[Rfam]
About this RNA
A member of the RNA family "SAM-I/IV (S-adenosyl methionine) riboswitch aptamer" from Prevotella sp. CAG:592, 124 nucleotides long. Its Rfam clan is "SAM clan". NCBI's taxonomy places the organism under Bacteria, Pseudomonadati, Bacteroidia, Bacteroidales, Prevotella.
RNA sequence: GACAAGCAUCAAGAGACUGUUUAAAUACAGAACCAACCGAGCAGAUUAGCCAUUGCCACGGUGGUAAAAUAGAUGUGAGUUUAAGGCUUGAUUAUUCAUCUUUAAAUUAAAAUUUUAUGGCAAC
Numbered sequence: 001g002a003c004a005a006g007c008a009u010c011a012a013g014a015g016a017c018u019g020u021u022u023a024a025a026u027a028c029a030g031a032a033c034c035a036a037c038c039g040a041g042c043a044g045a046u047u048a049g050c051c052a053u054u055g056c057c058a059c060g061g062u063g064g065u066a067a068a069a070u071a072g073a074u075g076u077g078a079g080u081u082u083a084a085g086g087c088u089u090g091a092u093u094a095u096u097c098a099u100c101u102u103u104a105a106a107u108u109a110a111a112a113u114u115u116u117a118u119g120g121c122a123a124c
Stems, first nucleotide, its partner, number of pairs: 006076005017030004032065003037061003041056002047117002078108009